The record is a 154-nucleotide sequence from Thermostaphylospora chromogena, which matches "c-di-AMP riboswitch aptamer (ydaO/yuaA leader)" in Rfam.

[Rfam]
RNA sequence: GACACGCGGCCGCCGAAUCCGUCAUCUACGGAACCGGGGACCCAACCACCUCGGGGUGAAUCGGCAUGUGCGCAUGCAUCGACCCGCGCACGCCGUAGGGCACCUUCCAGCCCGAACCCGUCAGCUAACCCGGUAGGCGGCAUGGAAGCAAGGA
Number, nucleotide and partner (000 for none) at each position: 001g000002a000003c000004a000005c000006g000007c000008g000009g000010c000011c139012g138013c137014c136015g000016a000017a000018u032019c031020c030021g000022u000023c000024a000025u000026c000027u000028a000029c000030g020031g019032a018033a134034c133035c132036g131037g130038g129039g000040a000041c000042c000043c053044a000045a000046c000047c000048a000049c000050c000051u000052c000053g043054g119055g118056g117057u000058g000059a000060a000061u000062c095063g094064g093065c092066a000067u000068g000069u000070g000071c000072g000073c000074a000075u000076g000077c000078a000079u000080c000081g000082a000083c000084c000085c000086g000087c000088g000089c000090a000091c000092g065093c064094c063095g062096u000097a000098g113099g112100g111101c110102a000103c000104c000105u000106u000107c000108c000109a000110g101111c100112c099113c098114g000115a000116a000117c056118c055119c054120g000121u000122c000123a000124g000125c000126u000127a000128a000129c038130c037131c036132g035133g034134u033135a000136g014137g013138c012139g011140g000141c000142a000143u000144g000145g000146a000147a000148g000149c000150a000151a000152g000153g000154a000